Rfam assigns this 124-nucleotide RNA sequence from Brassica oleracea to the family "MIR9563 microRNA precursor family". It scores 98 bits against the family's covariance model. Gene Ontology terms of the family: miRNA-mediated post-transcriptional gene silencing and RISC complex.

RNA sequence: GAAAUAUAAGAAUCUAUCUCUUAAAUUUUAACUAAAAAACUAAGAACUGUCUCUUAAAACUCUUAUUUAAUAGCCGGUUCUUAGUUUUUUUAGUUAAAAAUUAAGAGUCAGAUUCUUAUAUUUC
Numbered sequence: 001g002a003a004a005u006a007u008a009a010g011a012a013u014c015u016a017u018c019u020c021u022u023a024a025a026u027u028u029u030a031a032c033u034a035a036a037a038a039a040c041u042a043a044g045a046a047c048u049g050u051c052u053c054u055u056a057a058a059a060c061u062c063u064u065a066u067u068u069a070a071u072a073g074c075c076g077g078u079u080c081u082u083a084g085u086u087u088u089u090u091u092a093g094u095u096a097a098a099a100a101u102u103a104a105g106a107g108u109c110a111g112a113u114u115c116u117u118a119u120a121u122u123u124c
Stems, first nucleotide, its partner, number of pairs: 001124015018107007026099014040084007